RNA sequence: GCAGAGGAAGCCGAAAAUCUUAAAAAGAGUAGGCC
Numbered sequence: 001g002c003a004g005a006g007g008a009a010g011c012c013g014a015a016a017a018u019c020u021u022a023a024a025a026a027g028a029g030u031a032g033g034c035c
Base pairs, nucleotide, nucleotide: 003020004019005018010034011033012032
DUF805b RNA: a 35-nucleotide RNA sequence from Mucilaginibacter yixingensis.
The family's RNA type in Rfam is cis-regulatory element.